[Rfam]
RNA: TPP riboswitch aptamer (THI element)
RNA sequence: AUUUAGAGCUAGGGGAGCUAGAAUUGGCUAGCUGAGAGAUUAAGCCUCAACUUACGAACCCUAACAACCUGAUCAAGGUAAUGCUUGCGAAGGGAAGCUUUAGUUAUAAUUU
Numbered sequence: 001a002u003u004u005a006g007a008g009c010u011a012g013g014g015g016a017g018c019u020a021g022a023a024u025u026g027g028c029u030a031g032c033u034g035a036g037a038g039a040u041u042a043a044g045c046c047u048c049a050a051c052u053u054a055c056g057a058a059c060c061c062u063a064a065c066a067a068c069c070u071g072a073u074c075a076a077g078g079u080a081a082u083g084c085u086u087g088c089g090a091a092g093g094g095a096a097g098c099u100u101u102a103g104u105u106a107u108a109a110u111u112u
Stems, first nucleotide, its partner, number of pairs: 006100005011062004017032005040054001042052001068093003074087004
Dot-bracket structure: .....(((((((((..(((((......))))).......(.(.........).)....)))).....(((...((((......))))...)))..)))))............